[Rfam]
RNA: mir-460 microRNA precursor family
Organism: Oryzias latipes
RNA sequence: UGUUGAAGCUUCCUCAUUGUGCAUGCUGUGUGUGUUUCUGUAAUUACCACACAGCGCCUGCAAUGUGGAGGCUAAAAGA
Numbered sequence: 001u002g003u004u005g006a007a008g009c010u011u012c013c014u015c016a017u018u019g020u021g022c023a024u025g026c027u028g029u030g031u032g033u034g035u036u037u038c039u040g041u042a043a044u045u046a047c048c049a050c051a052c053a054g055c056g057c058c059u060g061c062a063a064u065g066u067g068g069a070g071g072c073u074a075a076a077a078g079a
Stems, first nucleotide, its partner, number of pairs: 012068002015065007024056001026054006